[Rfam]
RNA sequence: AUCAAAUGCUUCUAGGGUUCCGAUCGCGCUGCUAGCGUGGUGUCUGGUCCAAGAGAAGCGGGCUCUCUCAAAUUGAAAGAGCAACACGGCGGGACAAAAGCCCGGGAGGU
Numbered sequence: 001a002u003c004a005a006a007u008g009c010u011u012c013u014a015g016g017g018u019u020c021c022g023a024u025c026g027c028g029c030u031g032c033u034a035g036c037g038u039g040g041u042g043u044c045u046g047g048u049c050c051a052a053g054a055g056a057a058g059c060g061g062g063c064u065c066u067c068u069c070a071a072a073u074u075g076a077a078a079g080a081g082c083a084a085c086a087c088g089g090c091g092g093g094a095c096a097a098a099a100g101c102c103c104g105g106g107a108g109g110u
Base pairs, nucleotide, nucleotide: 007060008059009058010057011056012055015050016049020047021046022044023041024040025039026038027037028036062082063081064080065079066078068076085105087108091103092102093101

Shown here is a 110-nucleotide RNA sequence from Halothece sp. PCC 7418, a member of the family "Guanidine-I riboswitch aptamer". On this family, see Barrick et al., Proc Natl Acad Sci U S A 2004: "New RNA motifs suggest an expanded scope for riboswitches in bacterial genetic control". Rfam describes the family as follows. This family represents a conserved RNA structure found upstream of the ykkC and yxkD genes in Bacillus subtilis and related genes in other bacteria. The function of this family is unclear although it has been suggested that it may function to switch on efflux pumps and detoxification systems in response to harmful environmental molecules. Rfam links the family to the GO term regulation of gene expression. The organism belongs to Halothece, within Bacteria. The match comes from Rfam's covariance-model search (86 bits).